[Rfam]
This 83-nucleotide sequence from Paenibacillus baekrokdamisoli belongs to the Rfam family "ZMP/ZTP riboswitch aptamer (pfl RNA motif)". The source organism's lineage runs through Bacteria, Bacillati, Bacillota, Paenibacillaceae and Paenibacillus. It scores 54 bits against the family's covariance model. The family's consensus secondary structure is taken from published work.

Nucleotides: 083
Stems, first nucleotide, its partner, number of pairs: 007051006015043002017071004025039004060078001062076003
Number, partner (000 for none) and nucleotide at each position: 001000u002000u003000c004000a005000c006000g007051a008050u009049g010048c011047g012046u013000g014000a015043c016042u017071g018070g019069c020068g021000g022000a023000g024000c025039a026038u027037g028036g029000g030000u031000g032000u033000a034000a035000a036028c037027c038026a039025u040000g041000a042016g043015g044000g045000a046012g047011c048010g049009c050008a051007u052000a053000a054000c055000a056000u057000a058000a059000u060078u061000a062076g063075c064074c065000g066000u067000a068020c069019g070018c071017c072000u073000g074064g075063g076062c077000a078060a079000a080000g081000g082000u083000a